[Rfam]
RNA sequence: GGAUUUAUCCCAGACAACCAAGGUUAGCUGUCGUUUCGAACUUCUCUUUAGAGAAUGUGUCGAUAACAUAAAUUUUGGAAAAGCUUCUUCGGGGUUUCCGUUGAAGCGAA
Numbered sequence: 001g002g003a004u005u006u007a008u009c010c011c012a013g014a015c016a017a018c019c020a021a022g023g024u025u026a027g028c029u030g031u032c033g034u035u036u037c038g039a040a041c042u043u044c045u046c047u048u049u050a051g052a053g054a055a056u057g058u059g060u061c062g063a064u065a066a067c068a069u070a071a072a073u074u075u076u077g078g079a080a081a082a083g084c085u086u087c088u089u090c091g092g093g094g095u096u097u098c099c100g101u102u103g104a105a106g107c108g109a110a
Base pairs, nucleotide, nucleotide: 007036013028016025017024018023038060040058041057042055043054044053045052046051085108087106088105089104090103091102092101093099094098
A member of the RNA family "SL2 RNA" from Caenorhabditis nigoni, 110 nucleotides long. Rfam classes the family as a non-coding RNA gene. Its Rfam clan is "SL clan". A reference for the family is Evans and Blumenthal (2000), "trans splicing of polycistronic Caenorhabditis elegans pre-mRNAs: analysis of the SL2 RNA", Mol Cell Biol. From the family's description: This family represents SL2 RNA. SL2 RNA is involved in trans splicing in lower eukaryotes. Trans-splicing is a form of RNA processing. The acquisition of a spliced leader from a SL RNA is a intra-molecular reaction which precisely joins exons derived from separately transcribed RNAs. Its family is annotated with mRNA trans splicing, via spliceosome in the Gene Ontology.